[Rfam]
RNA: Glycine riboswitch aptamer
RNA sequence: CGAGCCUGCUCGGGAGAGUCCCCAACCCACCGUGAACUGCGGGAAAAGGGGCGCCGAAGGAGCAAACCCUCCCCGGAAUCUCUCAGGCAUCCGUACCGUGUGGGCUAG
Numbered sequence: 001c002g003a004g005c006c007u008g009c010u011c012g013g014g015a016g017a018g019u020c021c022c023c024a025a026c027c028c029a030c031c032g033u034g035a036a037c038u039g040c041g042g043g044a045a046a047a048g049g050g051g052c053g054c055c056g057a058a059g060g061a062g063c064a065a066a067c068c069c070u071c072c073c074c075g076g077a078a079u080c081u082c083u084c085a086g087g088c089a090u091c092c093g094u095a096c097c098g099u100g101u102g103g104g105c106u107a108g
Stems, first nucleotide, its partner, number of pairs: 006103004011098003020051004053088003056084002060082003067075001